[Rfam]
RNA sequence: AGUAUGUGGAGACAAGCGACCACAAUAAAAACAGGGAGUAACCAAAAAUCCAUAAGAGUAGGACAAUA
Numbered sequence: 001a002g003u004a005u006g007u008g009g010a011g012a013c014a015a016g017c018g019a020c021c022a023c024a025a026u027a028a029a030a031a032c033a034g035g036g037a038g039u040a041a042c043c044a045a046a047a048a049u050c051c052a053u054a055a056g057a058g059u060a061g062g063a064c065a066a067u068a
Stems, first nucleotide, its partner, number of pairs: 006023004035051003042062002